[Rfam]
RNA sequence: UGUUUCAAGGACUUAGCCAUGCAUGCCUCAGAAUCACUGCAUUGCAGGAAUCUGCGCAUGGCUCAUUACAUCAGACGUAAUCUGCCGCAAAAAUCUUGCGGUUUCCGCAACAUUGGAUAACUUGGCGAAACGCCAAGCUAAUACAUGAACCAAAGGGACGUUCUCUGUUCCGGCGGUGGGGCAACUCACUGUCAUGGGGCGUCCAGCGAAUGAAUGAAAUUAAAACCAAUGCCUUCACCGGCAGUAACACCCAGAAGUGUUGACUCAAUUCAUUCCGUGCGAAAGCUGGAUUUCUUAUCCGGCGUCUUUUGACGAACAACUGCCCUAUCAGCCAGUGAUGGCCGUGUAGUGGACUGCCAUGGCGUUGACGGGAGCGGGGGAUUAGGGUUCGAUUCCGGAGAGGGAGCCUGAGAAAUAGCUACCACUUCUACGGAGGGCAGCAGGCGCGCAAAUUGCCCAAUGUCAAAAAAAAACGAUGAGGCAGCGAAAAGAAAUAGAGCCGACAGUGCCUAGUGCAUUGUCGUUUUCAAUGGGGGAUAUUUAAACCCAUCCAAAAUCGAGUAACAA
Number, nucleotide and partner (000 for none) at each position: 001u000002g000003u492004u491005u490006c000007a000008a000009g485010g447011a000012c000013u000014u000015a000016g445017c444018c443019a000020u442021g441022c440023a000024u000025g055026c054027c000028u000029c000030a053031g052032a051033a000034u000035c000036a000037c047038u046039g000040c000041a000042u000043u000044g000045c000046a038047g037048g000049a000050a000051u032052c031053u030054g026055c025056g000057c000058a000059u000060g000061g000062c400063u399064c398065a000066u000067u000068a000069c000070a000071u000072c322073a321074g320075a000076c000077g317078u316079a000080a000081u315082c314083u000084g000085c000086c000087g310088c000089a308090a307091a000092a000093a000094u000095c000096u000097u000098g000099c000100g000101g000102u000103u000104u000105c000106c000107g000108c000109a000110a000111c000112a000113u000114u145115g144116g000117a000118u000119a000120a000121c137122u136123u135124g134125g133126c132127g000128a000129a000130a000131c000132g126133c125134c124135a123136a122137g121138c000139u000140a000141a000142u000143a000144c115145a114146u000147g000148a000149a000150c000151c000152a000153a000154a000155g000156g204157g203158a202159c201160g000161u000162u198163c197164u000165c000166u000167g000168u000169u000170c000171c000172g000173g000174c000175g000176g000177u000178g000179g000180g000181g000182c000183a000184a000185c000186u000187c000188a000189c000190u000191g000192u000193c000194a000195u000196g000197g163198g162199g000200c000201g159202u158203c157204c156205a000206g000207c000208g000209a000210a273211u272212g271213a270214a269215u268216g000217a000218a000219a000220u000221u000222a000223a000224a261225a260226c259227c000228a000229a000230u000231g000232c241233c240234u000235u000236c000237a000238c000239c000240g233241g232242c000243a000244g000245u000246a000247a000248c000249a000250c000251c000252c000253a000254g000255a000256a000257g000258u000259g226260u225261u224262g000263a000264c000265u000266c000267a000268a215269u214270u213271c212272a211273u210274u000275c000276c000277g000278u000279g000280c000281g000282a000283a000284a000285g303286c302287u301288g300289g299290a298291u297292u000293u000294c000295u000296u000297a291298u290299c289300c288301g287302g286303c285304g000305u000306c000307u090308u089309u000310u087311g000312a000313c000314g082315a081316a078317c077318a000319a000320c074321u073322g072323c000324c372325c371326u370327a000328u000329c000330a000331g363332c362333c361334a000335g000336u000337g000338a360339u359340g358341g357342c356343c000344g354345u353346g000347u000348a000349g000350u000351g000352g000353a345354c344355u000356g342357c341358c340359a339360u338361g333362g332363c331364g000365u000366u000367g000368a000369c000370g326371g325372g324373a000374g000375c397376g396377g395378g394379g390380g389381a388382u387383u000384a000385g000386g000387g382388u381389u380390c379391g000392a000393u000394u378395c377396c376397g375398g064399a063400g062401a000402g423403g422404g000405a420406g419407c418408c000409u000410g000411a000412g000413a000414a000415a000416u000417a000418g407419c406420u405421a000422c403423c402424a000425c436426u435427u434428c433429u000430a000431c000432g000433g428434a427435g426436g425437g000438c000439a000440g022441c021442a020443g018444g017445c016446g000447c010448g000449c000450a000451a000452a000453u483454u000455g482456c481457c480458c000459a000460a000461u478462g477463u476464c475465a000466a000467a000468a000469a000470a000471a000472a000473a000474c000475g464476a463477u462478g461479a000480g457481g456482c455483a453484g000485c009486g000487a000488a000489a000490a005491g004492a003493a000494a000495u000496a000497g000498a527499g526500c000501c523502g522503a521504c520505a519506g518507u517508g516509c515510c000511u000512a000513g000514u000515g509516c508517a507518u506519u505520g504521u503522c502523g501524u000525u000526u499527u498528c000529a000530a000531u000532g000533g000534g558535g557536g000537a000538u554539a000540u000541u000542u000543a000544a000545a000546c000547c000548c000549a000550u000551c000552c000553a000554a538555a000556a000557u535558c534559g000560a000561g000562u000563a000564a000565c000566a000567a000
Annotation: Rfam assigns this 567-nucleotide part of an RNA from Trypanosoma theileri to the family "Eukaryotic small subunit ribosomal RNA". Gene Ontology terms of the family: ribosome and structural constituent of ribosome. A reference for the family is Yusupov et al. (2001), "Crystal structure of the ribosome at 5.5 A resolution", Science. Rfam 15.1 lists 75,755 matches to the family in 2,556 species. Pairs were carried over by alignment from the consensus structure, which is taken from published work.